[Rfam]
RNA sequence: UGUACAAGUCUAUAGAAACAUCGUAUAUACUUUCGACAUGAUGGUGAAAGCGUUUCUACCUGAAAACCAAUUUCAGACUACGAUGGAAGCUUAUAUACGA
Numbered sequence: 001u002g003u004a005c006a007a008g009u010c011u012a013u014a015g016a017a018a019c020a021u022c023g024u025a026u027a028u029a030c031u032u033u034c035g036a037c038a039u040g041a042u043g044g045u046g047a048a049a050g051c052g053u054u055u056c057u058a059c060c061u062g063a064a065a066a067c068c069a070a071u072u073u074c075a076g077a078c079u080a081c082g083a084u085g086g087a088a089g090c091u092u093a094u095a096u097a098c099g100a
Stems, first nucleotide, its partner, number of pairs: 019085007030050006060076006
RNA: Purine riboswitch aptamer